The family of this 71-nucleotide sequence from Neogale vison is "mir-34 microRNA precursor family".
Rfam links the family to the GO terms RISC complex and miRNA-mediated post-transcriptional gene silencing.
From the family's description: Human mir-34a was discovered computationally and later experimentally verified. The mature sequence is excised from the 5' arm of the hairpin.
On this family, see Houbaviy et al., Dev Cell 2003: "Embryonic stem cell-specific MicroRNAs".
The family is grouped with related families in Rfam's "mir-34 clan".
RNA sequence: GGUUUGUAGGCAGUGUCAUUAGCUGAUUGUAGUCGGCUGCUCACAAUCACUAACUCCACUGCCAUCAAAAC
Numbered sequence: 001g002g003u004u005u006g007u008a009g010g011c012a013g014u015g016u017c018a019u020u021a022g023c024u025g026a027u028u029g030u031a032g033u034c035g036g037c038u039g040c041u042c043a044c045a046a047u048c049a050c051u052a053a054c055u056c057c058a059c060u061g062c063c064a065u066c067a068a069a070a071c
Stems, first nucleotide, its partner, number of pairs: 003069004009063002012060004019053004024049007